[Rfam]
RNA sequence: UUUGCAAGUGAUGAUAAAAUAGACAGGGACAUCAGAGCACUCCAUAGGAGGAUGAUGACUUAGUCUUUGGGAAUCUCUCUGAUGCAAU
Numbered sequence: 001u002u003u004g005c006a007a008g009u010g011a012u013g014a015u016a017a018a019a020u021a022g023a024c025a026g027g028g029a030c031a032u033c034a035g036a037g038c039a040c041u042c043c044a045u046a047g048g049a050g051g052a053u054g055a056u057g058a059c060u061u062a063g064u065c066u067u068u069g070g071g072a073a074u075c076u077c078u079c080u081g082a083u084g085c086a087a088u
Stems, first nucleotide, its partner, number of pairs: 002087005

The record is an 88-nucleotide RNA from Camellia sinensis, which matches "Small nucleolar RNA R44/J54/Z268 family" in Rfam. By type it is a C/D-box small nucleolar RNA. The match comes from Rfam's covariance-model search (85 bits). Rfam links the family to the GO terms nucleolus and RNA processing. Clan: SNORD74 clan.